The family of this 162-nucleotide sequence from Prunus armeniaca is "MIR168 microRNA precursor family". The match comes from Rfam's covariance-model search (103 bits). The literature on the family includes a 2002 paper in Genes Dev by Reinhart et al., "MicroRNAs in plants".
RNA sequence: UUACUGGCGGUCUCUAAUUCGCUUGGUGCAGGUCGGGAACUGCUUCGCGUUUAGGGCCUUUUUUUCGUACAAGACCUAUGAGCCAGGUGGCGCCAUGGUAUUGGUCGGUGGGUGCGAAAUGGGUCCCGCCUUGCAUCAACUGAAUCGGAGACCGCGGUGAAG
Number, nucleotide and partner (000 for none) at each position: 001u000002u000003a000004c000005u000006g000007g000008c000009g000010g000011u000012c000013u149014c148015u000016a000017a145018u144019u143020c142021g000022c000023u139024u138025g137026g136027u135028g134029c133030a132031g131032g130033u000034c128035g127036g126037g125038a124039a000040c122041u121042g000043c000044u000045u000046c000047g000048c000049g000050u000051u000052u000053a000054g000055g000056g000057c000058c000059u000060u000061u000062u000063u000064u000065u000066c000067g000068u000069a000070c000071a000072a000073g000074a000075c000076c000077u000078a000079u000080g000081a000082g000083c000084c000085a000086g000087g000088u000089g000090g000091c000092g000093c000094c000095a000096u000097g000098g000099u000100a000101u000102u000103g000104g000105u000106c000107g000108g000109u000110g000111g000112g000113u000114g000115c000116g000117a000118a000119a000120u000121g041122g040123g000124u038125c037126c036127c035128g034129c000130c032131u031132u030133g029134c028135a027136u026137c025138a024139a023140c000141u000142g020143a019144a018145u017146c000147g000148g014149a013150g000151a000152c000153c000154g000155c000156g000157g000158u000159g000160a000161a000162g000
The family's consensus secondary structure was predicted with WAR. Gene Ontology terms of the family: RISC complex and miRNA-mediated post-transcriptional gene silencing.